[Rfam]
RNA sequence: CAACACCCACCAACCAGCCCCUUUCUGUGCGGUAGCUUGCACAAUGGUGGCCAAAGUGUGGUGUGAGAUUU
Dot-bracket structure: ..((((((((......(((((.....((((........))))...)).)))....))).))))).......
The family of this 71-nucleotide RNA from Trypanosoma brucei is "Trypanosomatid snoRNA TB11Cs5H1". On this family, see Liang et al., RNA 2005: "A genome-wide analysis of C/D and H/ACA-like small nucleolar RNAs in Trypanosoma brucei reveals a trypanosome-specific pattern of rRNA modification". The family's consensus secondary structure was predicted with WAR. By type it is an H/ACA-box small nucleolar RNA. Its family is annotated with RNA processing and nucleolus in the Gene Ontology.